[Rfam]
RNA sequence: UUCAUAAAAUUCAAUAGACCUCAUAUAAUAGUGAGAAUAAGGCUCACAUGUUUCUACCGGGUAGCCGUAAACUACCUGACUAUGAGGGAAGUGUAUCUAGGG
Number, nucleotide and partner (000 for none) at each position: 001u000002u000003c000004a000005u000006a000007a000008a000009a000010u000011u000012c000013a000014a000015u000016a000017g000018a000019c087020c086021u085022c084023a083024u082025a081026u000027a000028a000029u000030a000031g047032u046033g045034a044035g043036a000037a000038u000039a000040a000041g000042g000043c035044u034045c033046a032047c031048a000049u000050g000051u000052u000053u000054c000055u000056a000057c000058c078059g077060g076061g075062u074063a073064g072065c000066c000067g000068u000069a000070a000071a000072c064073u063074a062075c061076c060077u059078g058079a000080c000081u025082a024083u023084g022085a021086g020087g019088g000089a000090a000091g000092u000093g000094u000095a000096u000097c000098u000099a000100g000101g000102g000
The family of this 102-nucleotide RNA sequence from Halobacteroides halobius is "Purine riboswitch aptamer". The organism belongs to Halobacteroides halobius, within Bacteria. Gene Ontology term of the family: purine nucleobase biosynthetic process.